[Rfam]
RNA sequence: AUGGUCUGCGGAAAGGCUCCUGUGUGGCCGCACCUGCCCGGGUGUGGGUGCAGCCUUGUACCAGGCAGCCCGAGCCUGACCUAGAGUAAAAUCCCCCGGGGGGGCCCAGUUCCCCCCGGGGUUUGGAUUUGCAGUAACAGGUGUGAACAUUCUAGCAGCAGUUUGAUGAUCAUGUAUGAUACUGCAAACAGGA
Numbered sequence: 001a002u003g004g005u006c007u008g009c010g011g012a013a014a015g016g017c018u019c020c021u022g023u024g025u026g027g028c029c030g031c032a033c034c035u036g037c038c039c040g041g042g043u044g045u046g047g048g049u050g051c052a053g054c055c056u057u058g059u060a061c062c063a064g065g066c067a068g069c070c071c072g073a074g075c076c077u078g079a080c081c082u083a084g085a086g087u088a089a090a091a092u093c094c095c096c097c098g099g100g101g102g103g104g105c106c107c108a109g110u111u112c113c114c115c116c117c118g119g120g121g122u123u124u125g126g127a128u129u130u131g132c133a134g135u136a137a138c139a140g141g142u143g144u145g146a147a148c149a150u151u152c153u154a155g156c157a158g159c160a161g162u163u164u165g166a167u168g169a170u171c172a173u174g175u176a177u178g179a180u181a182c183u184g185c186a187a188a189c190a191g192g193a
Stems, first nucleotide, its partner, number of pairs: 003081004008076001015070004019065004024061002026055003030051001032049003093120003098116007128188009138178002144172003148168004154163003
RNA: Small Cajal body specific RNA 16
Organism: Canis lupus